[Rfam]
RNA sequence: UAAGUAGAUCGCUUUAUCGCUUUUGUGCUGAAUUUGUUUUAGUGUCUAAGUUUAUAUUUAAAAGGUACUGAAACAAGUUCAGCACUUGAGAGGAAAGUCCGAACACCGUAGUGCAACAUAGUGGUUAACAGCCACCAGUCGUGAGGCUAGGAAAAGUGCAACAGAAAGUAUGUACAGGUCAUGCUGUAGUGAAACCGGGUAAACUCUAUGUGGUGCAAUGCCAUGUAUACCAGUGUUUGAGGGCUGCACGCUCGAUACUGGAGGGUAGGCAGCUAAAGUGUAUUGGUAACAAUAUACGUAGAUAAAUGAUAAAGUAUUCUUGUAUUUGUUUUGGGUGAUCCUAAAACAAGUUCGAGAUAAACAGAAUUCGGCUUAUAGAUUUACUUGAAAA
Numbered sequence: 001u002a003a004g005u006a007g008a009u010c011g012c013u014u015u016a017u018c019g020c021u022u023u024u025g026u027g028c029u030g031a032a033u034u035u036g037u038u039u040u041a042g043u044g045u046c047u048a049a050g051u052u053u054a055u056a057u058u059u060a061a062a063a064g065g066u067a068c069u070g071a072a073a074c075a076a077g078u079u080c081a082g083c084a085c086u087u088g089a090g091a092g093g094a095a096a097g098u099c100c101g102a103a104c105a106c107c108g109u110a111g112u113g114c115a116a117c118a119u120a121g122u123g124g125u126u127a128a129c130a131g132c133c134a135c136c137a138g139u140c141g142u143g144a145g146g147c148u149a150g151g152a153a154a155a156g157u158g159c160a161a162c163a164g165a166a167a168g169u170a171u172g173u174a175c176a177g178g179u180c181a182u183g184c185u186g187u188a189g190u191g192a193a194a195c196c197g198g199g200u201a202a203a204c205u206c207u208a209u210g211u212g213g214u215g216c217a218a219u220g221c222c223a224u225g226u227a228u229a230c231c232a233g234u235g236u237u238u239g240a241g242g243g244c245u246g247c248a249c250g251c252u253c254g255a256u257a258c259u260g261g262a263g264g265g266u267a268g269g270c271a272g273c274u275a276a277a278g279u280g281u282a283u284u285g286g287u288a289a290c291a292a293u294a295u296a297c298g299u300a301g302a303u304a305a306a307u308g309a310u311a312a313a314g315u316a317u318u319c320u321u322g323u324a325u326u327u328g329u330u331u332u333g334g335g336u337g338a339u340c341c342u343a344a345a346a347c348a349a350g351u352u353c354g355a356g357a358u359a360a361a362c363a364g365a366a367u368u369c370g371g372c373u374u375a376u377a378g379a380u381u382u383a384c385u386u387g388a389a390a391a
Stems, first nucleotide, its partner, number of pairs: 001387010011376001012314007020090003025085023095374003099371005104215004111249004116211005121135005136150001137148004151206002156204002158200002219271004230261005241253004278297008
Shown here is a 391-nucleotide RNA sequence from Flavivirga eckloniae, a member of the family "Bacterial RNase P class A". Ribonuclease P (RNase P) is a ubiquitous endoribonuclease, found in archaea, bacteria and eukarya as well as chloroplasts and mitochondria.